[Rfam]
RNA sequence: AUUUUCGAAAGAUCUCUCAGGAUCGCUGGAGUUGAUUAAUAUAGUUUUACGAGGUAGAGAUAAUGAUUAGAGGAUUCAGGGAAAAAGUUUCCUUGACCUAUUCUCAAACUCCCAAUACGUAAUAAGGGAUUAAUAGCUUCAAUACAGAGAUGUAUUCUUCCCACUAUAAAUAAAAUAACUCCAAGUGGGCCAUUUUUGGUAAGCAGAACUGGCGAUGAGGGAUGCUCCUAACGCUUGGAUAAGGUGCCUAAAUAUUCGCUCAUUAGAUCCCAUAAAAGGUGUUGGUCCAUAGUGACAGUAGGACGGUGGUCAUGGAAGUCGAAAACCGCUAAGGAGUGUGUAACAACUCACCUACCGAAUGAACUAGCCCUGAAAAUGGAUGGCGCUAAAGCGAAUUACCGAUACCAAGCCAUAGAAAGAGAUUGAAGGGUUAAUCGUGUGAGGACAUGAUUGAAUCUCUUUGGAAUCUUUCUAUGAGUAGAAAAUCGUGGGGUUUGUGUAGAAGCAAGAUGCGUGAGCUCUUGUGGAACAUAUCCCUAGUGCAGAU
Dot-bracket structure: ((((((....(((((....)))))..(((((((...........(.(((((.....(((....(((..(.(((..((((((.(.....).))))))))).)..)))..)).).....))))).).((((..(((...................)))..))))..............))))))).....((((.(((((.....))))).))))....(((......)))...(((((.....(((......(.(..(((.................(((.((((((.(((.......(((((.(((...((.........))...)))(...)(...((......)).).)))))...))).)))))))))...................)))..))))).....)))))(((((((((................................................)))))))))....))))))(.(((((..(((......((.....((....))....))...)))...)))))..).....
Numbered sequence: 001a002u003u004u005u006c007g008a009a010a011g012a013u014c015u016c017u018c019a020g021g022a023u024c025g026c027u028g029g030a031g032u033u034g035a036u037u038a039a040u041a042u043a044g045u046u047u048u049a050c051g052a053g054g055u056a057g058a059g060a061u062a063a064u065g066a067u068u069a070g071a072g073g074a075u076u077c078a079g080g081g082a083a084a085a086a087g088u089u090u091c092c093u094u095g096a097c098c099u100a101u102u103c104u105c106a107a108a109c110u111c112c113c114a115a116u117a118c119g120u121a122a123u124a125a126g127g128g129a130u131u132a133a134u135a136g137c138u139u140c141a142a143u144a145c146a147g148a149g150a151u152g153u154a155u156u157c158u159u160c161c162c163a164c165u166a167u168a169a170a171u172a173a174a175a176u177a178a179c180u181c182c183a184a185g186u187g188g189g190c191c192a193u194u195u196u197u198g199g200u201a202a203g204c205a206g207a208a209c210u211g212g213c214g215a216u217g218a219g220g221g222a223u224g225c226u227c228c229u230a231a232c233g234c235u236u237g238g239a240u241a242a243g244g245u246g247c248c249u250a251a252a253u254a255u256u257c258g259c260u261c262a263u264u265a266g267a268u269c270c271c272a273u274a275a276a277a278g279g280u281g282u283u284g285g286u287c288c289a290u291a292g293u294g295a296c297a298g299u300a301g302g303a304c305g306g307u308g309g310u311c312a313u314g315g316a317a318g319u320c321g322a323a324a325a326c327c328g329c330u331a332a333g334g335a336g337u338g339u340g341u342a343a344c345a346a347c348u349c350a351c352c353u354a355c356c357g358a359a360u361g362a363a364c365u366a367g368c369c370c371u372g373a374a375a376a377u378g379g380a381u382g383g384c385g386c387u388a389a390a391g392c393g394a395a396u397u398a399c400c401g402a403u404a405c406c407a408a409g410c411c412a413u414a415g416a417a418a419g420a421g422a423u424u425g426a427a428g429g430g431u432u433a434a435u436c437g438u439g440u441g442a443g444g445a446c447a448u449g450a451u452u453g454a455a456u457c458u459c460u461u462u463g464g465a466a467u468c469u470u471u472c473u474a475u476g477a478g479u480a481g482a483a484a485a486u487c488g489u490g491g492g493g494u495u496u497g498u499g500u501a502g503a504a505g506c507a508a509g510a511u512g513c514g515u516g517a518g519c520u521c522u523u524g525u526g527g528a529a530c531a532u533a534u535c536c537c538u539a540g541u542g543c544a545g546a547u
Stems, first nucleotide, its partner, number of pairs: 001486006011024005027183007045124001047122005057112001058110002064106003069101001071099003076096006083089001126162004132156003189213004194208005218229003233410005243400003252397001254396001257393003277371003281368006288361003298355005304328003310322002329333001334349001338347002411476009487542001489539005496531003505525002512519002
About this RNA:
Eukaryotic large subunit ribosomal RNA: a 547-nucleotide part of an RNA from Plasmodium yoelii. Pairs were carried over by alignment from the consensus structure, which is taken from published work.